[Rfam]
A member of the RNA family "ZMP/ZTP riboswitch aptamer (pfl RNA motif)" from Xylanimonas protaetiae, 98 nucleotides long.

RNA sequence: CCGAGCGGCCGUGACUGGCGAAGGUGGGGCACCACCGGGGAGCGGCCUCGACACCACGUGUCGCUCGCCUUCGUGCGCCGCCCGCCUGGGCGCCGGGG
Number, nucleotide and partner (000 for none) at each position: 001c000002c000003g000004a000005g049006c000007g047008g046009c045010c044011g043012u042013g000014a000015c039016u038017g086018g085019c084020g083021a000022a000023g000024g035025u034026g033027g032028g000029g000030c000031a000032c027033c026034a025035c024036c000037g000038g016039g015040g000041a000042g012043c011044g010045g009046c008047c007048u000049c005050g000051a000052c000053a000054c000055c000056a000057c000058g000059u000060g000061u000062c000063g000064c000065u000066c000067g000068c000069c000070u000071u000072c000073g000074u000075g093076c092077g091078c090079c089080g000081c000082c000083c020084g019085c018086c017087u000088g000089g079090g078091c077092g076093c075094c000095g000096g000097g000098g000
Pairs were carried over by alignment from the consensus structure, which is taken from published work.